[Rfam]
RNA: Bacterial large subunit ribosomal RNA, nucleotides 616 to 847
RNA sequence: GAGUUACGCUGGCUGGCAAGGUUAAGCACUCAAGGUGUGGAGCCGGAGGGAAACCAAGUCUUAAUAGGGCGAAAGAGUCAGUCAGAGUAGACCCGAAACCGGGUGAUCUAUCCAUGUCCAGGUUGAAGUUACCGUAAAAGGUAAUGGAGGACCGAACGCACAUCCGUUGAAAAGGGUGGCGAUGAGGUGUGGAUAGGGGAGAAAUUCCAAUCGAACCCGGAGAUAGCUGGUU
Number, nucleotide and partner (000 for none) at each position: 001g000002a000003g000004u000005u089006a088007c087008g000009c085010u084011g083012g082013c081014u080015g079016g078017c077018a000019a000020g044021g043022u042023u041024a000025a000026g038027c037028a036029c000030u000031c000032a000033a000034g000035g000036u028037g027038u026039g000040g000041a023042g022043c021044c020045g000046g000047a000048g055049g054050g000051a000052a000053a000054c049055c048056a000057a000058g070059u069060c068061u067062u000063a000064a000065u000066a000067g061068g060069g059070c058071g000072a000073a000074a000075g000076a000077g017078u016079c015080a014081g013082u012083c011084a010085g009086a000087g007088u006089a005090g000091a000092c230093c229094c000095g227096a000097a000098a000099c220100c219101g218102g217103g216104u215105g000106a000107u000108c196109u195110a194111u193112c192113c191114a190115u189116g188117u187118c186119c184120a000121g153122g152123u151124u150125g000126a000127a000128g145129u144130u143131a142132c141133c140134g000135u000136a000137a000138a000139a000140g133141g132142u131143a130144a129145u128146g000147g000148a000149g000150g124151a123152c122153c121154g000155a000156a000157c181158g180159c179160a000161c178162a177163u176164c175165c174166g000167u000168u000169g000170a000171a000172a000173a000174g165175g164176g163177u162178g161179g159180c158181g157182a000183u000184g119185a000186g118187g117188u116189g115190u114191g113192g112193a111194u110195a109196g108197g000198g208199g207200a206201g000202a000203a000204a000205u000206u200207c199208c198209a000210a000211u000212c000213g000214a000215a104216c103217c102218c101219g100220g099221a000222g000223a000224u000225a000226g000227c095228u000229g093230g092231u000232u000